[Rfam]
The record is a 90-nucleotide RNA from Flavobacterium muglaense, which matches "Flavo-1 RNA" in Rfam.

RNA sequence: UUUUAACCUCCAAACUGCAUUAGGGAUAGCAGCGGUAUCCUUUGAUGAAAUGCAAUGGAAUCAAAGAUAAAGCGAAUAACCCGACCGAAG
Numbered sequence: 001u002u003u004u005a006a007c008c009u010c011c012a013a014a015c016u017g018c019a020u021u022a023g024g025g026a027u028a029g030c031a032g033c034g035g036u037a038u039c040c041u042u043u044g045a046u047g048a049a050a051u052g053c054a055a056u057g058g059a060a061u062c063a064a065a066g067a068u069a070a071a072g073c074g075a076a077u078a079a080c081c082c083g084a085c086c087g088a089a090g
Base pairs, nucleotide, nucleotide: 023082024081025080027078028077032073033072037068038067039066043063044062045061046060050056
It scores 45 bits against the family's covariance model. The base pairs follow the family's consensus structure, which is taken from published work.